[Rfam]
RNA: FMN riboswitch aptamer (RFN element)
RNA sequence: UGAAGUCUUUGUGGCAGGGUGUAAGUCCCUACCGAUGGUAUAGUCCAUGACCCGCUUUGGCGGCUGAGCCGGUGACUCCUUUUGUAUGAUAGGGGAAUUCCGGCACCGACGGUAUAGUCCGGAUGAGAAAAGACAUUU
Numbered sequence: 001u002g003a004a005g006u007c008u009u010u011g012u013g014g015c016a017g018g019g020u021g022u023a024a025g026u027c028c029c030u031a032c033c034g035a036u037g038g039u040a041u042a043g044u045c046c047a048u049g050a051c052c053c054g055c056u057u058u059g060g061c062g063g064c065u066g067a068g069c070c071g072g073u074g075a076c077u078c079c080u081u082u083u084g085u086a087u088g089a090u091a092g093g094g095g096a097a098u099u100c101c102g103g104c105a106c107c108g109a110c111g112g113u114a115u116a117g118u119c120c121g122g123a124u125g126a127g128a129a130a131a132g133a134c135a136u137u138u
Stems, first nucleotide, its partner, number of pairs: 003136001005134006017029003031118002033108002035048004043106002052063002068104005110121003